[Rfam]
RNA sequence: GGUGGUCCAGGAUGAAACCUAAUCUGAGUGGACGUCUGGAUGAGAGAUGCGGAUAUAGGGCUGAGACCAGCU
Numbered sequence: 001g002g003u004g005g006u007c008c009a010g011g012a013u014g015a016a017a018c019c020u021a022a023u024c025u026g027a028g029u030g031g032a033c034g035u036c037u038g039g040a041u042g043a044g045a046g047a048u049g050c051g052g053a054u055a056u057a058g059g060g061c062u063g064a065g066a067c068c069a070g071c072u
Base pairs, nucleotide, nucleotide: 001071003069004068005067

This 72-nucleotide RNA sequence from Tupaia belangeri belongs to the Rfam family "Small nucleolar RNA SNORD99". Gene Ontology terms of the family: nucleolus and RNA processing. Pairs were carried over by alignment from the consensus structure, which was predicted with RNAalifold. It is annotated as a C/D-box small nucleolar RNA. Clan: SNORD58 clan. NCBI's taxonomy places the organism under Eukaryota, Chordata, Tetrapoda, Amniota, Tupaia belangeri. On this family, see Huttenhofer et al., EMBO J 2001: "RNomics: an experimental approach that identifies 201 candidates for novel, small, non-messenger RNAs in mouse".